This 336-nucleotide RNA from Candidatus Symbiopectobacterium sp. PLON1 belongs to the Rfam family "Soft rot Enterobacteriaceae Rev 44 asRNA". About the family: From bacteria cultured under starvation conditions. Antisense to ECA0910. Taxonomically the source falls in Symbiopectobacterium (Bacteria, Pseudomonadati, Gammaproteobacteria, ant, tsetse, mealybug, aphid, etc. endosymbionts).
RNA sequence: CCGUCGUUCACGUAAUGUUUACGUGAGGUUUCAUCAAAGAUGGAGUACAUGAUGCCGCCAGCUUUGGAGAACGCAUUAACGGAGUGAGGCCAAAUAAUCACGUUGGAUUCAUCGGUAAAACGACGGCCAUGGGUAUCUACCCAAAGAUAAGGUUGGCGUGCAGCGGCCAGCAUGUGGGAGUUUGGUGCGUAGUCUGGCAGGCCAGGGCGGUAAGCUUGCAGUACGCCCAUUCCUUCAUCUUUGGCGCCGGCUUUCCGGGCCAUUUUGAUCCCGUCUCUAUCUUUACCGACGUUGCCAAUCAUGAUGGUAUCUGGGAAGGCGACGUAUUUUUGCAGC
Numbered sequence: 001c002c003g004u005c006g007u008u009c010a011c012g013u014a015a016u017g018u019u020u021a022c023g024u025g026a027g028g029u030u031u032c033a034u035c036a037a038a039g040a041u042g043g044a045g046u047a048c049a050u051g052a053u054g055c056c057g058c059c060a061g062c063u064u065u066g067g068a069g070a071a072c073g074c075a076u077u078a079a080c081g082g083a084g085u086g087a088g089g090c091c092a093a094a095u096a097a098u099c100a101c102g103u104u105g106g107a108u109u110c111a112u113c114g115g116u117a118a119a120a121c122g123a124c125g126g127c128c129a130u131g132g133g134u135a136u137c138u139a140c141c142c143a144a145a146g147a148u149a150a151g152g153u154u155g156g157c158g159u160g161c162a163g164c165g166g167c168c169a170g171c172a173u174g175u176g177g178g179a180g181u182u183u184g185g186u187g188c189g190u191a192g193u194c195u196g197g198c199a200g201g202c203c204a205g206g207g208c209g210g211u212a213a214g215c216u217u218g219c220a221g222u223a224c225g226c227c228c229a230u231u232c233c234u235u236c237a238u239c240u241u242u243g244g245c246g247c248c249g250g251c252u253u254u255c256c257g258g259g260c261c262a263u264u265u266u267g268a269u270c271c272c273g274u275c276u277c278u279a280u281c282u283u284u285a286c287c288g289a290c291g292u293u294g295c296c297a298a299u300c301a302u303g304a305u306g307g308u309a310u311c312u313g314g315g316a317a318g319g320c321g322a323c324g325u326a327u328u329u330u331u332g333c334a335g336c
Base pairs, nucleotide, nucleotide: 002012003011004010021274022273023272025270026269029179030178031177032176033175034174040050041049042048054167055166056165057164058163061159062158065139066138067137068136069134072131073130080125081124084121085120089116090115091114094112095111097109145154146153184236185235187233189230190229192226193225195223196222197219198218199217200216201215202214240259241258242257243256244255278321280319281318282317283316286313288311289310294308295307296306297305